[Rfam]
RNA sequence: GGGACGGCAUCCUUGUGGAGCGGUACUCGACACGAGACUGAAUCAUUUCUUUUUUAAUCCGUUGCUUUGAUUCCAAGCGAACAAAGACUAAGGA
Numbered sequence: 001g002g003g004a005c006g007g008c009a010u011c012c013u014u015g016u017g018g019a020g021c022g023g024u025a026c027u028c029g030a031c032a033c034g035a036g037a038c039u040g041a042a043u044c045a046u047u048u049c050u051u052u053u054u055u056a057a058u059c060c061g062u063u064g065c066u067u068u069g070a071u072u073c074c075a076a077g078c079g080a081a082c083a084a085a086g087a088c089u090a091a092g093g094a
Base pairs, nucleotide, nucleotide: 001028002027003026004024005023007021008020010019011018062090064088065086066085067084068083069082071081072080073079
RNA: pan motif
Organism: Paenibacillus ginsengarvi